The family of this 449-nucleotide sequence from Fusarium solani is "RNase MRP".
RNA sequence: CCCUCGCUCAAUAAAUCGCCAUUCGAAGCUCACAAACAGAGACACUGCGAUCGCAGCGUCUCCCUUUACAUUUGGCUUUGGGAGAAAGUCCCCGGACGUCUCCGUUUCGACGGAGCCUGCGGAAACGCGCCGCCAUAGAAGCACAGCGGCUGACCUCUGCACCCAGGCCCUCUCCCUGCGCCGGCCCUGCUCUCCGCUACAUCUUCCCAUAUGGCAACUUGAUACUCACGCUGAACCAAUCUCCCGGUCCCUUUGGAUGAAGAUAUGAGUCCGCUGCCGGGUUGAGGGGUUCUUCUUGGGCUGACGGGGGCCGAAAGGUGGAUGGUUGGCAGACGUUGGUCGCUCGCGAGUGUGGCAUCGGGCGCUGAGGACUUGUUGUCGAGGUUGAUAGGUAUGCGAUUGCUCAGCGAAAGCCGAGUUACUCAACGGGGCUCAUUCUUGAUGCGAGG
Numbered sequence: 001c002c003c004u005c006g007c008u009c010a011a012u013a014a015a016u017c018g019c020c021a022u023u024c025g026a027a028g029c030u031c032a033c034a035a036a037c038a039g040a041g042a043c044a045c046u047g048c049g050a051u052c053g054c055a056g057c058g059u060c061u062c063c064c065u066u067u068a069c070a071u072u073u074g075g076c077u078u079u080g081g082g083a084g085a086a087a088g089u090c091c092c093c094g095g096a097c098g099u100c101u102c103c104g105u106u107u108c109g110a111c112g113g114a115g116c117c118u119g120c121g122g123a124a125a126c127g128c129g130c131c132g133c134c135a136u137a138g139a140a141g142c143a144c145a146g147c148g149g150c151u152g153a154c155c156u157c158u159g160c161a162c163c164c165a166g167g168c169c170c171u172c173u174c175c176c177u178g179c180g181c182c183g184g185c186c187c188u189g190c191u192c193u194c195c196g197c198u199a200c201a202u203c204u205u206c207c208c209a210u211a212u213g214g215c216a217a218c219u220u221g222a223u224a225c226u227c228a229c230g231c232u233g234a235a236c237c238a239a240u241c242u243c244c245c246g247g248u249c250c251c252u253u254u255g256g257a258u259g260a261a262g263a264u265a266u267g268a269g270u271c272c273g274c275u276g277c278c279g280g281g282u283u284g285a286g287g288g289g290u291u292c293u294u295c296u297u298g299g300g301c302u303g304a305c306g307g308g309g310g311c312c313g314a315a316a317g318g319u320g321g322a323u324g325g326u327u328g329g330c331a332g333a334c335g336u337u338g339g340u341c342g343c344u345c346g347c348g349a350g351u352g353u354g355g356c357a358u359c360g361g362g363c364g365c366u367g368a369g370g371a372c373u374u375g376u377u378g379u380c381g382a383g384g385u386u387g388a389u390a391g392g393u394a395u396g397c398g399a400u401u402g403c404u405c406a407g408c409g410a411a412a413g414c415c416g417a418g419u420u421a422c423u424c425a426a427c428g429g430g431g432c433u434c435a436u437u438c439u440u441g442a443u444g445c446g447a448g449g
Stems, first nucleotide, its partner, number of pairs: 002449006008442004014401006023082001024080006039062005045056004087433002090431004119128003289373001291371001295369005305361001307359001309356001311354001343350002403418003407414002
Dot-bracket structure: .((((((((((..((((((...(((((((.........(((((.((((....)))).)))))............)))))).)....[[.[[[[.........................(((....)))................................................................................................................................................................(.(...(((((.....(.(.(.(...............................((....))...).)..).)...))))).).)......................)))))).(((.((....)).))).........]]]]]].....)))).))))))
The source organism's lineage runs through Eukaryota, leotiomyceta, Nectriaceae, Fusarium and Fusarium solani species complex.